[Rfam]
RNA sequence: GGAGCCAUCUUACCCGAUGGCAUUAGGCUGGGACGCUAGAUUCUAAUACUGUCAGGUAAAGAUGUCUUU
Dot-bracket structure: .(((.(((((((((.(((((.((((((..............)))))).))))).))))).)))).))).
RNA: mir-8/mir-141/mir-200 microRNA precursor family